[Rfam]
RNA sequence: UGCUGCUUCACUUCUUGGGCGUUUCCUCCCUUAACUCGGGCCGCCGUCAGGCGGCCCUUUUUUCUUGCCCGG
Number, nucleotide and partner (000 for none) at each position: 001u000002g000003c000004u000005g000006c000007u000008u000009c019010a000011c017012u000013u000014c000015u000016u000017g011018g000019g009020c000021g000022u000023u000024u000025c000026c000027u000028c000029c000030c000031u000032u000033a000034a000035c000036u000037c000038g057039g056040g055041c054042c053043g052044c051045c050046g000047u000048c000049a000050g045051g044052c043053g042054g041055c040056c039057c038058u000059u000060u000061u000062u000063u000064c000065u000066u000067g000068c000069c000070c000071g000072g000

The family of this 72-nucleotide RNA sequence from Thalassobaculum fulvum is "Makes More Granules Regulator RNA (mmgR)". SuhB later renamed mmgR (makes more granules regulator) was a putative non-coding RNA found multiple times in the Agrobacterium tumefaciens genome and related alpha-proteobacteria. NCBI's taxonomy places the organism under Bacteria, Pseudomonadati, Pseudomonadota, Rhodospirillales, Thalassobaculum. It scores 52 bits against the family's covariance model. Rfam classes the family as a small RNA.